[Rfam]
RNA sequence: UGCUUGCGUUAAGGAAUUAUGAAUCUAAUCACAUGUCAGACUUCAGAGAUUCUUUUAAACAAAGAAAUCAAUGAGAUUAAAGUUCAUAAAUCUGAGCUGCUG
Numbered sequence: 001u002g003c004u005u006g007c008g009u010u011a012a013g014g015a016a017u018u019a020u021g022a023a024u025c026u027a028a029u030c031a032c033a034u035g036u037c038a039g040a041c042u043u044c045a046g047a048g049a050u051u052c053u054u055u056u057a058a059a060c061a062a063a064g065a066a067a068u069c070a071a072u073g074a075g076a077u078u079a080a081a082g083u084u085c086a087u088a089a090a091u092c093u094g095a096g097c098u099g100c101u102g
Base pairs, nucleotide, nucleotide: 001102002101004099006097007096048069049068050067051066
Background
This 102-nucleotide RNA sequence from Helianthus annuus belongs to the Rfam family "Small nucleolar RNA R64/Z200 family". A search with the family's covariance model found it, with a score of 64 bits. For this family Rfam cites "Purified box C/D snoRNPs are able to reproduce site-specific 2'-O-methylation of target RNA in vitro" (Galardi et al., Mol Cell Biol, 2002).